The family of this 79-nucleotide RNA from Petromyzon marinus is "mir-181 microRNA precursor family".
Rfam's curators put it in the seed alignment.
A reference for the family is Lagos-Quintana et al. (2003), "New microRNAs from mouse and human", RNA.
The organism belongs to Petromyzon, within Eukaryota.
Pairs were carried over by alignment from the consensus structure, which was predicted with PFOLD.
RNA sequence: UCUCGAUGAACAUUCAACGCUGUCGGUGAGUUUUGUUCUUCCCGACCUUAAACCAUCGACCGUUGACUGUACCUCGCCA
Number, nucleotide and partner (000 for none) at each position: 001u079002c000003u000004c076005g075006a000007u000008g000009a000010a000011c069012a068013u000014u066015c065016a064017a063018c062019g061020c000021u000022g060023u059024c058025g057026g056027u055028g054029a000030g053031u052032u051033u050034u000035g000036u000037u000038c000039u000040u000041c000042c000043c000044g000045a000046c000047c000048u000049u000050a033051a032052a031053c030054c028055a027056u026057c025058g024059a023060c022061c019062g018063u017064u016065g015066a014067c000068u012069g011070u000071a000072c000073c000074u000075c005076g004077c000078c000079a001